The record is a 79-nucleotide RNA sequence from Mauremys mutica, which matches "mir-16 microRNA precursor family" in Rfam. The match comes from Rfam's covariance-model search (37 bits). Clan: mir-15 clan. NCBI's taxonomy places the organism under Eukaryota, Vertebrata, Gnathostomata, Sarcopterygii, Mauremys. The literature on the family includes a 2002 paper in Proc Natl Acad Sci U S A by Calin et al., "Frequent deletions and down-regulation of micro- RNA genes miR15 and miR16 at 13q14 in chronic lymphocytic leukemia". Rfam 15.1 lists 4,705 matches to the family in 758 species. Its family is annotated with RISC complex and miRNA-mediated post-transcriptional gene silencing in the Gene Ontology. The family's consensus secondary structure was predicted with PFOLD.
RNA sequence: CGCUGCCAGCAGCAGCGCAGAAGUAAGGGUGGCAUGGUAUGAUAUUGCCACCCUUACUUCUGCACUGCUGCUGGCAGGG
Numbered sequence: 001c002g003c004u005g006c007c008a009g010c011a012g013c014a015g016c017g018c019a020g021a022a023g024u025a026a027g028g029g030u031g032g033c034a035u036g037g038u039a040u041g042a043u044a045u046u047g048c049c050a051c052c053c054u055u056a057c058u059u060c061u062g063c064a065c066u067g068c069u070g071c072u073g074g075c076a077g078g079g
Stems, first nucleotide, its partner, number of pairs: 001079001003077001005075003011069005017063002020059001022058008